[Rfam]
Rfam assigns this 149-nucleotide RNA sequence from Rhizobium sp. BG4 to the family "FMN riboswitch aptamer (RFN element)". The family has 146 seed sequences and 6,230 matches in Rfam 15.1. Pairs were carried over by alignment from the consensus structure, which is taken from published work. Taxonomically the source falls in Rhizobium (Bacteria, Pseudomonadota, Alphaproteobacteria, Rhizobiaceae). Rfam's curators write: The RFN element is a highly conserved domain that is found frequently in the 5'-untranslated regions of prokaryotic mRNAs that encode for flavin mononucleotide (FMN) biosynthesis and transport proteins.

RNA sequence: GGCGGUUCUCAGGGCGGGGUGAAAGUCCCCACCGGCGGUAAAGGGUCUCGGCCCAAGCCCGCGAGCGCUUCGGCCGUCAGAGGCCGGGGGUCAGCAGAUCCGGUGCAAUUCCGGAGCCGACGGUAUAGUCCGGAUGAAAGAGAAUGAUC
Numbered sequence: 001g002g003c004g005g006u007u008c009u010c011a012g013g014g015c016g017g018g019g020u021g022a023a024a025g026u027c028c029c030c031a032c033c034g035g036c037g038g039u040a041a042a043g044g045g046u047c048u049c050g051g052c053c054c055a056a057g058c059c060c061g062c063g064a065g066c067g068c069u070u071c072g073g074c075c076g077u078c079a080g081a082g083g084c085c086g087g088g089g090g091u092c093a094g095c096a097g098a099u100c101c102g103g104u105g106c107a108a109u110u111c112c113g114g115a116g117c118c119g120a121c122g123g124u125a126u127a128g129u130c131c132g133g134a135u136g137a138a139a140g141a142g143a144a145u146g147a148u149c
Stems, first nucleotide, its partner, number of pairs: 005145006017029003031129002033119002035062004057117002065095002099115005121132003